[Rfam]
The record is a 133-nucleotide RNA from Pteropus alecto, which matches "Small Cajal body specific RNA 24" in Rfam. The literature on the family includes a 2002 paper in EMBO J by Darzacq et al., "Cajal body-specific small nuclear RNAs: a novel class of 2'-O-methylation and pseudouridylation guide RNAs". Its family is annotated with RNA processing, nucleolus and Cajal body in the Gene Ontology. From the family's description: scaRNAs are a specific class of small nuclear RNAs which localise to the Cajal bodies and guide the modification of RNA polymerase II transcribed spliceosomal RNAs U1, U2, U4, U5 and U12.
RNA sequence: UGGACAUUUAUGUUUAUUCAGUUUCUCUUACUUAAGGUGAAGAAACUCUUUGUGACUGUCCUACAGAAACACAGUAGCUUUCUGUUUGCCUUUUGCCAAGUAAAAAACUGACAUUUGUCCACGUGUAAAAUAA
Number, nucleotide and partner (000 for none) at each position: 001u000002g061003g060004a059005c058006a057007u000008u055009u054010a053011u052012g000013u000014u000015u000016a000017u000018u000019c000020a047021g046022u045023u044024u000025c000026u043027c042028u041029u040030a000031c039032u000033u000034a000035a000036g000037g000038u000039g031040a029041a028042g027043a026044a023045a022046c021047u020048c000049u000050u000051u000052g011053u010054g009055a008056c000057u006058g005059u004060c003061c002062u000063a000064c000065a000066g000067a000068a000069a000070c000071a000072c000073a126074g000075u000076a000077g122078c000079u000080u000081u000082c000083u000084g000085u000086u000087u000088g000089c000090c000091u107092u106093u105094u104095g000096c000097c000098a000099a000100g000101u000102a000103a000104a094105a093106a092107a091108c000109u000110g000111a000112c000113a000114u000115u000116u000117g000118u000119c000120c000121a000122c077123g000124u000125g000126u073127a000128a000129a000130a000131u000132a000133a000